[Rfam]
RNA: Small Cajal body specific RNA 4
Organism: Molossus molossus
Nucleotides: 129
Stems, first nucleotide, its partner, number of pairs: 002061002005057005017045003021041006068122004079113002082109006092101002
Number, partner (000 for none) and nucleotide at each position: 001000g002061c003060u004000a005057g006056a007055g008054g009053a010000c011000u012000a013000a014000g015000a016000a017045g018044g019043c020000u021041g022040a023039g024038u025037c026036u027000g028000a029000g030000g031000a032000a033000g034000c035000a036026a037025g038024a039023c040022u041021c042000u043019g044018c045017u046000g047000a048000u049000g050000c051000a052000a053009u054008c055007c056006u057005c058000c059000u060003a061002g062000a063000a064000a065000a066000a067000a068122g069121g070120g071119u072000u073000g074000g075000g076000g077000a078000g079113a080112g081000c082109a083108g084107c085106c086105c087104u088000a089000g090000u091000c092101g093100g094000a095000g096000a097000c098000u099000a100093u101092c102000a103000c104087a105086g106085g107084g108083c109082u110000c111000a112080c113079u114000g115000c116000a117000c118000u119071a120070c121069c122068c123000a124000a125000c126000a127000u128000u129000c